Rfam assigns this 61-nucleotide RNA sequence from Protea cynaroides to the family "Plastid-psbA-2 3UTR RNA".
Rfam classes the family as a cis-regulatory element.
Its Rfam clan is "Plastid-psbA 3UTR RNA clan".
Rfam's curators write: Plastid psbA-2 is a non-coding RNA (ncRNA) present in plastids.
[Rfam]
RNA sequence: UUGAAGGAGCAAUACCGCAUUUCUUGUUUUAUCAAGAGGUUGGUAUUGCUCCUUCAUUUAA
Numbered sequence: 001u002u003g004a005a006g007g008a009g010c011a012a013u014a015c016c017g018c019a020u021u022u023c024u025u026g027u028u029u030u031a032u033c034a035a036g037a038g039g040u041u042g043g044u045a046u047u048g049c050u051c052c053u054u055c056a057u058u059u060a061a
Base pairs, nucleotide, nucleotide: 002056003055004054005053006052007051008050009049010048011047012046013045014044015043016042017040018039022037023036024035025034026033